[Rfam]
Annotation: A member of the RNA family "MIR2655 microRNA precursor family" from Trifolium subterraneum, 230 nucleotides long. A search with the family's covariance model found it, with a score of 127 bits. Its family is annotated with RISC complex and miRNA-mediated post-transcriptional gene silencing in the Gene Ontology. Lineage of the source: Eukaryota > Streptophyta > Spermatophyta > Fabaceae > Trifolium.
Nucleotides: 230
Base pairs, nucleotide, nucleotide: 002228003227004226005225006224007223008222023207024206025205027203028202029201031199032198033197034196035195036194037193038192039191040190042188043187044185045184046183
Number, partner (000 for none) and nucleotide at each position: 001000c002228c003227c004226u005225u006224a007223u008222c009000u010000u011000u012000u013000a014000a015000a016000a017000g018000u019000u020000u021000c022000a023207a024206g025205u026000u027203g028202g029201u030000c031199c032198c033197u034196u035195a036194u037193c038192u039191u040190u041000a042188u043187u044185u045184a046183g047000g048000u049000u050000u051000c052000a053000a054000g055000u056000u057000g058000g059000u060000c061000c062000c063000u064000u065000c066000c067000g068000u069000c070000a071000a072000u073000u074000u075000c076000u077000u078000a079000a080000c081000u082000a083000u084000u085000u086000c087000c088000g089000u090000u091000a092000a093000a094000u095000u096000u097000g098000g099000a100000c101000a102000c103000g104000u105000g106000g107000c108000a109000c110000a111000c112000u113000u114000g115000a116000a117000c118000a119000g120000g121000u122000g123000a124000c125000a126000c127000g128000u129000g130000u131000c132000c133000a134000g135000a136000u137000u138000u139000a140000a141000c142000g143000g144000u145000a146000a147000c148000a149000g150000u151000a152000a153000a154000a155000a156000a157000u158000c159000u160000g161000a162000c163000g164000g165000a166000a167000g168000g169000g170000a171000c172000c173000a174000a175000c176000u177000u178000g179000a180000a181000a182000c183046c184045u185044a186000a187043a188042a189000a190040a191039a192038a193037g194036a195035u196034a197033a198032g199031g200000g201029a202028c203027c204000a205025a206024c207023u208000u209000g210000a211000a212000a213000c214000u215000u216000u217000u218000a219000a220000a221000a222008g223007a224006u225005a226004a227003g228002g229000g230000a